A member of the RNA family "Eukaryotic large subunit ribosomal RNA" from Oryzias sinensis, 536 nucleotides of a longer RNA. Taxonomically the source falls in Oryzias (Eukaryota, Opisthokonta, Neopterygii, Ovalentaria).
[Rfam]
RNA sequence: GGUAGUAGCAAAUAUUCAAGUGAGAACCUUGAAGGCCGAGGUGGAGAAGGGUUCCAUGGGAACAGCAGUUGGCCAUGGGUCAGGCGGUCCUAAGUGAUCCGUUAACUCGGAACAGAGACGGGGUGCCUGACAUUGUCCGUUUUGCGGGCUUUGUUCAGUAUUGCUGCUGAAAGUACCGUUGCAUAGGCAGCCCCCUGUAGCGAAAGGGAAUCGGGUUAAUAUUCCCGACCCUGCUCACGGAGAUUGGUGCACUCUGGUCCUUCGGAUUAGUGUGUACCUAGCGCGGUAACGCAACCGACCUCGGAGACGUCGGCGAGAGUUCUGGGAAGAGUUUUCUUUUCUUUGUUAGGAGCGCAUCCACCCCCUGGAAUCGGAUUGUCCGGAGAUAGGGGGCUAGCCUCCGUAAAGCACCACCCUUCAUGUGGUGUCCAGAACGCUCUUGUCGGCCCUUGAAAAUCCGAGCGAGGCAAUAUAAUUUUCGUGGCAGGCCGUACCCAUAUCCGCAUCAGGUCUCCAAGGUGAACAGCCUCUGGCAU
Numbered sequence: 001g002g003u004a005g006u007a008g009c010a011a012a013u014a015u016u017c018a019a020g021u022g023a024g025a026a027c028c029u030u031g032a033a034g035g036c037c038g039a040g041g042u043g044g045a046g047a048a049g050g051g052u053u054c055c056a057u058g059g060g061a062a063c064a065g066c067a068g069u070u071g072g073c074c075a076u077g078g079g080u081c082a083g084g085c086g087g088u089c090c091u092a093a094g095u096g097a098u099c100c101g102u103u104a105a106c107u108c109g110g111a112a113c114a115g116a117g118a119c120g121g122g123g124u125g126c127c128u129g130a131c132a133u134u135g136u137c138c139g140u141u142u143u144g145c146g147g148g149c150u151u152u153g154u155u156c157a158g159u160a161u162u163g164c165u166g167c168u169g170a171a172a173g174u175a176c177c178g179u180u181g182c183a184u185a186g187g188c189a190g191c192c193c194c195c196u197g198u199a200g201c202g203a204a205a206g207g208g209a210a211u212c213g214g215g216u217u218a219a220u221a222u223u224c225c226c227g228a229c230c231c232u233g234c235u236c237a238c239g240g241a242g243a244u245u246g247g248u249g250c251a252c253u254c255u256g257g258u259c260c261u262u263c264g265g266a267u268u269a270g271u272g273u274g275u276a277c278c279u280a281g282c283g284c285g286g287u288a289a290c291g292c293a294a295c296c297g298a299c300c301u302c303g304g305a306g307a308c309g310u311c312g313g314c315g316a317g318a319g320u321u322c323u324g325g326g327a328a329g330a331g332u333u334u335u336c337u338u339u340u341c342u343u344u345g346u347u348a349g350g351a352g353c354g355c356a357u358c359c360a361c362c363c364c365c366u367g368g369a370a371u372c373g374g375a376u377u378g379u380c381c382g383g384a385g386a387u388a389g390g391g392g393g394c395u396a397g398c399c400u401c402c403g404u405a406a407a408g409c410a411c412c413a414c415c416c417u418u419c420a421u422g423u424g425g426u427g428u429c430c431a432g433a434a435c436g437c438u439c440u441u442g443u444c445g446g447c448c449c450u451u452g453a454a455a456a457u458c459c460g461a462g463c464g465a466g467g468c469a470a471u472a473u474a475a476u477u478u479u480c481g482u483g484g485c486a487g488g489c490c491g492u493a494c495c496c497a498u499a500u501c502c503g504c505a506u507c508a509g510g511u512c513u514c515c516a517a518g519g520u521g522a523a524c525a526g527c528c529u530c531u532g533g534c535a536u
Stems, first nucleotide, its partner, number of pairs: 015033006035534003043515004049495002054078006063071002085491003089207002094201002096113001098111001100109002120194005211228005231487004300462006309447004314442007322432003326344005349402004362392006371383004409427006501510002517529004